[Rfam]
This 101-nucleotide sequence from Citrobacter freundii belongs to the Rfam family "Manganese Mn2+ riboswitch aptamer (yybP-ykoY)". From the family's description: This RNA was originally discovered in E. coli during a large scale screen and was named SraF. The family was later found to exist upstream of related families of protein genes in many bacteria, including the the yybP and ykoK genes in B. subtilis. The specific functions of these proteins are unknown, but this structured RNA element may be involved in their genetic regulation as a riboswitch. The organism belongs to Citrobacter freundii complex, within Bacteria. The match comes from Rfam's covariance-model search (52 bits).
RNA sequence: GCGCCCGUCAUUGGGGAGUAGCCGAUUUCCAGACUCCGGAAAUGUACGUGUCAACAUACUCGUCGCAAGGCGUGGCGCGUACGGACUGUAAACAUACAGUC
Numbered sequence: 001g002c003g004c005c006c007g008u009c010a011u012u013g014g015g016g017a018g019u020a021g022c023c024g025a026u027u028u029c030c031a032g033a034c035u036c037c038g039g040a041a042a043u044g045u046a047c048g049u050g051u052c053a054a055c056a057u058a059c060u061c062g063u064c065g066c067a068a069g070g071c072g073u074g075g076c077g078c079g080u081a082c083g084g085a086c087u088g089u090a091a092a093c094a095u096a097c098a099g100u101c
Base pairs, nucleotide, nucleotide: 026041027040044082045081046080047079048078049077050076051075052074053073061072062071063070064069084101085100086099087098088097089096